About this RNA:
dauA ncRNA motif: a 94-nucleotide sequence from Streptacidiphilus albus. Rfam's curators put it in the seed alignment. Rfam links the family to the GO term regulation of gene expression. The base pairs follow the family's consensus structure, which is taken from published work. From the family's description: dauA ncRNA motif was reported as a strong cis regulatory motif candidate, with potential to be a cis regulatory riboswitch type, it have been identified in genomes of the genus Streptomyces. Lineage of the source: Bacteria > Actinomycetes > Kitasatosporales > Streptomycetaceae > Streptacidiphilus. A reference for the family is Narunsky et al. (2024), "The discovery of novel noncoding RNAs in 50 bacterial genomes", Nucleic Acids Res. By type it is a cis-regulatory element.
RNA sequence: ACGACCGCAACGGGAGCGCGCCAGGAGGGGCCGGGAGACCGGCGCCGCACCGUGGGGCGCUGCCGGGGGCGGUCCUGGGAACCGAGGGGCCAUG
Numbered sequence: 001a002c003g004a005c006c007g008c009a010a011c012g013g014g015a016g017c018g019c020g021c022c023a024g025g026a027g028g029g030g031c032c033g034g035g036a037g038a039c040c041g042g043c044g045c046c047g048c049a050c051c052g053u054g055g056g057g058c059g060c061u062g063c064c065g066g067g068g069g070c071g072g073u074c075c076u077g078g079g080a081a082c083c084g085a086g087g088g089g090c091c092a093u094g
Stems, first nucleotide, its partner, number of pairs: 002089001005086001011065003015061005021055001027050001028046002030043005070084003